[Rfam]
RNA sequence: AGAGGUCCGACAGGGGUGUCAUGAGACCACACGUAUAAUACUUUUAUAUAAUAAUAUAGAAGAUUCGUGUGUUCUCAGGUCGCCCCAGUAGGACUAUC
Numbered sequence: 001a002g003a004g005g006u007c008c009g010a011c012a013g014g015g016g017u018g019u020c021a022u023g024a025g026a027c028c029a030c031a032c033g034u035a036u037a038a039u040a041c042u043u044u045u046a047u048a049u050a051a052u053a054a055u056a057u058a059g060a061a062g063a064u065u066c067g068u069g070u071g072u073u074c075u076c077a078g079g080u081c082g083c084c085c086c087a088g089u090a091g092g093a094c095u096a097u098c
Stems, first nucleotide, its partner, number of pairs: 007092002011088001013086002016083003023076004028071005
About this RNA
MIR398 microRNA precursor family: a 98-nucleotide RNA sequence from Handroanthus impetiginosus. A search with the family's covariance model found it, with a score of 66 bits. The family's consensus secondary structure was predicted with WAR.